[Rfam]
RNA sequence: AAUUAUUAACGGUUCAUCUAUUUAUAUUUCCCGUAUAAAAAAACCUGCCCUGAGGCAGGUCUUUUAUUAUU
Numbered sequence: 001a002a003u004u005a006u007u008a009a010c011g012g013u014u015c016a017u018c019u020a021u022u023u024a025u026a027u028u029u030c031c032c033g034u035a036u037a038a039a040a041a042a043a044c045c046u047g048c049c050c051u052g053a054g055g056c057a058g059g060u061c062u063u064u065u066a067u068u069a070u071u
Base pairs, nucleotide, nucleotide: 005022007020008019039064040063041062043060044059045058046057047056048055
Shown here is a 71-nucleotide RNA sequence from Klebsiella variicola, a member of the family "Enterobacterial sRNA STnc370".
The organism belongs to Klebsiella variicola, within Bacteria.
Pairs were carried over by alignment from the consensus structure, which was predicted with WAR.